[Rfam]
RNA: L13-Bacteroidia ribosomal protein leader
RNA sequence: GGGGUACUCUUAGAACCCCGGAGAAGCGUGUUAAUAGUCGUGCUUUUGGCCGGGCACGAUGGUUAGGGAAUC
Numbered sequence: 001g002g003g004g005u006a007c008u009c010u011u012a013g014a015a016c017c018c019c020g021g022a023g024a025a026g027c028g029u030g031u032u033a034a035u036a037g038u039c040g041u042g043c044u045u046u047u048g049g050c051c052g053g054g055c056a057c058g059a060u061g062g063u064u065a066g067g068g069a070a071u072c
Stems, first nucleotide, its partner, number of pairs: 001019005031066005037060009